[Rfam]
RNA sequence: UUACUGGACGCUUUAGCUAUUGAACUGUUUUGUCACUCUCUAUCAAAGAACAUUUAGCUAUUGAACUGAAAUCAGUGACAAAGACUGACAAAUGUCACUCAUGUCUGAAAAAUGUGUUCUUUGACAGAGACUGACCAAAAAGUUCAAUAGCUAAAGCGUCCAUUAAC
Numbered sequence: 001u002u003a004c005u006g007g008a009c010g011c012u013u014u015a016g017c018u019a020u021u022g023a024a025c026u027g028u029u030u031u032g033u034c035a036c037u038c039u040c041u042a043u044c045a046a047a048g049a050a051c052a053u054u055u056a057g058c059u060a061u062u063g064a065a066c067u068g069a070a071a072u073c074a075g076u077g078a079c080a081a082a083g084a085c086u087g088a089c090a091a092a093u094g095u096c097a098c099u100c101a102u103g104u105c106u107g108a109a110a111a112a113u114g115u116g117u118u119c120u121u122u123g124a125c126a127g128a129g130a131c132u133g134a135c136c137a138a139a140a141a142g143u144u145c146a147a148u149a150g151c152u153a154a155a156g157c158g159u160c161c162a163u164u165a166a167c
Stems, first nucleotide, its partner, number of pairs: 001166003005162002011156016028139001029128007049118004
The record is a 167-nucleotide RNA from Plutella xylostella, which matches "mir-8517 microRNA precursor family" in Rfam. Taxonomically the source falls in Plutella (Eukaryota, Arthropoda, Pancrustacea, Altocrustacea). Its family is annotated with miRNA-mediated post-transcriptional gene silencing and RISC complex in the Gene Ontology.